[Rfam]
RNA sequence: GUAUGCUUGGCUCCUCAUACGCCAUCCAUGGAGGUCAUCGAUUAUUCGAUGGGCUCUGCGAAUGGCAUACAGGGAGCCAGGCAUAC
Numbered sequence: 001g002u003a004u005g006c007u008u009g010g011c012u013c014c015u016c017a018u019a020c021g022c023c024a025u026c027c028a029u030g031g032a033g034g035u036c037a038u039c040g041a042u043u044a045u046u047c048g049a050u051g052g053g054c055u056c057u058g059c060g061a062a063u064g065g066c067a068u069a070c071a072g073g074g075a076g077c078c079a080g081g082c083a084u085a086c
Stems, first nucleotide, its partner, number of pairs: 001086006008079007018069002021066004027060001029058001
The family of this 86-nucleotide sequence from Beta vulgaris is "mir-160 microRNA precursor family". Gene Ontology terms of the family: RISC complex and miRNA-mediated post-transcriptional gene silencing. The family's consensus secondary structure was predicted with PFOLD.